This 85-nucleotide sequence from Callorhinchus milii belongs to the Rfam family "mir-135 microRNA precursor family".
[Rfam]
RNA sequence: UCGCUCCUGUGCUUUAUGGCUUUUUAUUCCUAUGUGAUUGUGACAUGAUCUCAUGUAGGGAGAGAAGCCAUGAAAUACACAGUGA
Numbered sequence: 001u002c003g004c005u006c007c008u009g010u011g012c013u014u015u016a017u018g019g020c021u022u023u024u025u026a027u028u029c030c031u032a033u034g035u036g037a038u039u040g041u042g043a044c045a046u047g048a049u050c051u052c053a054u055g056u057a058g059g060g061a062g063a064g065a066a067g068c069c070a071u072g073a074a075a076u077a078c079a080c081a082g083u084g085a
Stems, first nucleotide, its partner, number of pairs: 002084004008079004013074011027061011
A search with the family's covariance model found it, with a score of 73 bits. The organism belongs to Callorhinchus, within Eukaryota. The literature on the family includes a 2002 paper in Curr Biol by Lagos-Quintana et al., "Identification of tissue-specific microRNAs from mouse".